[Rfam]
RNA sequence: UCACAAGCCCAGGGGCAUAGCAGAAACACUUCAGGUGUGGCCCCGUGAGAUUUCAAUGAAUCUUCAAAUUCUGCU
Number, nucleotide and partner (000 for none) at each position: 001u000002c000003a000004c000005a000006a000007g000008c000009c000010c000011a000012g000013g043014g042015g041016c040017a000018u000019a075020g074021c073022a072023g071024a070025a069026a000027c039028a038029c037030u000031u000032c000033a000034g000035g000036u000037g029038u028039g027040g016041c015042c014043c013044c000045g000046u000047g064048a063049g062050a061051u060052u059053u058054c000055a000056a000057u000058g053059a052060a051061u050062c049063u048064u047065c000066a000067a000068a000069u025070u024071c023072u022073g021074c020075u019
A member of the RNA family "Mammalian CPEB3 ribozyme" from Alligator mississippiensis, 75 nucleotides long. The family's consensus secondary structure is taken from published work. A reference for the family is Teixeira et al. (2004), "Autocatalytic RNA cleavage in the human beta-globin pre-mRNA promotes transcription termination", Nature.